[Rfam]
RNA sequence: UCUUAUGAUGAGCAACAAAUUAAAUGCAUAGUUCACCUGAAAGUCUUGCGACUUUUUUUGAUGACAAACCUUUACCAUCUUUCACCUUUGUCUGAUU
Numbered sequence: 001u002c003u004u005a006u007g008a009u010g011a012g013c014a015a016c017a018a019a020u021u022a023a024a025u026g027c028a029u030a031g032u033u034c035a036c037c038u039g040a041a042a043g044u045c046u047u048g049c050g051a052c053u054u055u056u057u058u059u060g061a062u063g064a065c066a067a068a069c070c071u072u073u074a075c076c077a078u079c080u081u082u083c084a085c086c087u088u089u090g091u092c093u094g095a096u097u
Base pairs, nucleotide, nucleotide: 006018009017010016031062032061033060035058042053043052044051045050